[Rfam]
RNA sequence: UGAAAUGUUUUGAUUAGAAAUAGUAAAAGCGAAAUGACUUUUCAGAGAGCCGUUGGCAGGUGCGAAACGGUAACGUCGUUCCCUUUGAACUCGUCUAUGAACAGCUGCCUGAACAUGUAGGGUUAGCCGGAGUUCCACCGUUACAGGGAUAGAUGGUGAUGGCCAUCGAAGAAGAUCAUUUUGCAUAAAAUGAAUUAGAGUGGUACCGCGGGUUCAACCUCGCCUCUAUA
Numbered sequence: 001u002g003a004a005a006u007g008u009u010u011u012g013a014u015u016a017g018a019a020a021u022a023g024u025a026a027a028a029g030c031g032a033a034a035u036g037a038c039u040u041u042u043c044a045g046a047g048a049g050c051c052g053u054u055g056g057c058a059g060g061u062g063c064g065a066a067a068c069g070g071u072a073a074c075g076u077c078g079u080u081c082c083c084u085u086u087g088a089a090c091u092c093g094u095c096u097a098u099g100a101a102c103a104g105c106u107g108c109c110u111g112a113a114c115a116u117g118u119a120g121g122g123u124u125a126g127c128c129g130g131a132g133u134u135c136c137a138c139c140g141u142u143a144c145a146g147g148g149a150u151a152g153a154u155g156g157u158g159a160u161g162g163c164c165a166u167c168g169a170a171g172a173a174g175a176u177c178a179u180u181u182u183g184c185a186u187a188a189a190a191u192g193a194a195u196u197a198g199a200g201u202g203g204u205a206c207c208g209c210g211g212g213u214u215c216a217a218c219c220u221c222g223c224c225u226c227u228a229u230a
Stems, first nucleotide, its partner, number of pairs: 007102002015097004026086004031081001039073002049071006105126002107123004128140003177192006197227004208223005

Rfam assigns this 230-nucleotide sequence from Paenibacillus solani to the family "T-box leader". A search with the family's covariance model found it, with a score of 123 bits. The family's RNA type in Rfam is cis-regulatory leader. Pairs were carried over by alignment from the consensus structure, which is taken from published work. The family has 48 seed sequences and 19,395 matches in Rfam 15.1. Uncharged tRNA acts as the effector for transcription antitermination of genes in the T-box leader family. T-boxes are found upstream of many aminoacyl-tRNA synthetase genes and some amino acid biosynthetic genes usually in Gram-positive bacteria. The anticodon of a specific tRNA base pairs to a specifier sequence within the T-box motif, and the NCCA acceptor tail of the tRNA base pairs to a conserved bulge in the T-box antiterminator hairpin. Its family is annotated with tRNA binding in the Gene Ontology.